[Rfam]
Nucleotides: 368
Base pairs, nucleotide, nucleotide: 001364002363003362005360006359007358008357009356010355011353012323013322014321015320016319017318018317020041021040023038024037025036026035027034028033046351047350048349050348051347052346053345054344055213056212057211058210065257067209068208069207070206071205072087073086074085075084076083090101091100092099093098103204104203108202109201110200111199112198124147125146126143127142128141130139131138132137155173156172157171158170159169160168175195176193177192178191179190180189181188182187217280218279219278220277228270229269230268231267232266254263255262288305289304290303291302292301293300294299
Number, partner (000 for none) and nucleotide at each position: 001364g002363c003362a004000g005360u006359g007358u008357c009356u010355c011353g012323g013322u014321c015320u016319g017318c018317c019000g020041c021040u022000g023038g024037u025036g026035c027034u028033c029000a030000u031000a032000a033028g034027g035026g036025c037024a038023c039000g040021a041020g042000a043000g044000g045000a046351a047350a048349g049000u050348c051347c052346g053345g054344g055213c056212a057211g058210c059000a060000u061000a062000g063000g064000a065257c066000g067209c068208u069207c070206c071205a072087c073086u074085g075084g076083u077000g078000a079000a080000a081000g082000u083076g084075c085074c086073a087072g088000c089000a090101g091100u092099u093098g094000g095000u096000g097000a098093c099092a100091g101090c102000u103204g104203g105000a106000u107000a108202u109201g110200g111199a112198a113000g114000a115000a116000g117000a118000g119000a120000a121000u122000a123000a124147c125146c126143g127142c128141u129000u130139c131138c132137c133000g134000c135000a136000a137132g138131g139130g140000u141128a142127g143126c144000a145000a146125g147124g148000g149000u150000g151000a152000g153000a154000a155173g156172g157171u158170g159169g160168u161000g162000u163000a164000a165000g166000a167000g168160a169159c170158u171157a172156c173155c174000a175195g176193c177192c178191g179190g180189c181188g182187g183000g184000u185000g186000a187182u188181c189180g190179u191178c192177g193176g194000g195175c196000u197000g198112u199111u200110c201109c202108a203104u204103c205071u206070g207069g208068a209067g210058g211057c212056u213055g214000c215000a216000a217280g218279u219278u220277c221000g222000c223000g224000u225000a226000u227000a228270c229269c230268a231267u232266c233000g234000u235000u236000u237000g238000a239000g240000g241000g242000c243000u244000g245000u246000c247000c248000g249000u250000c251000c252000g253000a254263g255262g256000u257065g258000c259000a260000a261000a262255c263254c264000a265000c266232g267231a268230u269229g270228g271000a272000g273000g274000g275000u276000a277220g278219a279218a280217u281000g282000c283000u284000u285000c286000a287000g288305u289304c290303g291302u292301a293300g294299g295000g296000u297000a298000a299294c300293c301292u302291g303290c304289g305288a306000a307000g308000u309000a310000g311000a312000u313000a314000a315000a316000u317018g318017g319016c320015a321014g322013a323012c324000g325000c326000c327000u328000c329000g330000c331000a332000a333000g334000a335000g336000g337000u338000a339000c340000a341000g342000a343000a344054c345053c346052c347051g348050g349048c350047u351046u352000a353011u354000a355010g356009g357008g358007a359006c360005a361000g362003u363002g364001c365000u366000u367000u368000c